RNA sequence: UGAAGAGACUGCAAAUAUGCGUGGUCUCUUUCAUUCAUCAUCAUUCAGGCAUAUUAAUCAUUGGAGAGACAGAUGGCACUGACCGCUGAAAAGAAGGCCGAAAUCGUCAAGGAAUACGGCCGUGGUGAC
Numbered sequence: 001u002g003a004a005g006a007g008a009c010u011g012c013a014a015a016u017a018u019g020c021g022u023g024g025u026c027u028c029u030u031u032c033a034u035u036c037a038u039c040a041u042c043a044u045u046c047a048g049g050c051a052u053a054u055u056a057a058u059c060a061u062u063g064g065a066g067a068g069a070c071a072g073a074u075g076g077c078a079c080u081g082a083c084c085g086c087u088g089a090a091a092a093g094a095a096g097g098c099c100g101a102a103a104u105c106g107u108c109a110a111g112g113a114a115u116a117c118g119g120c121c122g123u124g125g126u127g128a129c
Stems, first nucleotide, its partner, number of pairs: 007026006061082004066077001
RNA: Ribosomal S15 leader
Organism: Pistricoccus aurantiacus